[Rfam]
Rfam assigns this 137-nucleotide sequence from Poecilia reticulata to the family "Small nucleolar RNA SNORA22". It is annotated as an H/ACA-box small nucleolar RNA. Rfam's curators write: ACA22 is a member of the H/ACA class of snoRNA that guide the sites of modification of uridines to pseudouridines. Its family is annotated with RNA processing and nucleolus in the Gene Ontology. The source organism's lineage runs through Eukaryota, Metazoa, Vertebrata, Gnathostomata and Poecilia.
RNA sequence: GCGCACAGCGAACACCCAGGGAUGCUACCGUGGCUUUCCCUGGUCUCCUGUGUCUGUGCUACAGUAACUCUGAUUUGUACCUCUGCAUCAGGAGAGCCGCCUUCUCUCCUGCAUGUAUUCAGCGAAUCAGAAUAACC
Numbered sequence: 001g002c003g004c005a006c007a008g009c010g011a012a013c014a015c016c017c018a019g020g021g022a023u024g025c026u027a028c029c030g031u032g033g034c035u036u037u038c039c040c041u042g043g044u045c046u047c048c049u050g051u052g053u054c055u056g057u058g059c060u061a062c063a064g065u066a067a068c069u070c071u072g073a074u075u076u077g078u079a080c081c082u083c084u085g086c087a088u089c090a091g092g093a094g095a096g097c098c099g100c101c102u103u104c105u106c107u108c109c110u111g112c113a114u115g116u117a118u119u120c121a122g123c124g125a126a127u128c129a130g131a132a133u134a135a136c137c
Stems, first nucleotide, its partner, number of pairs: 003059006010053001013050002016043005022036001024034003061076001063074001065072002083122003086115003090110007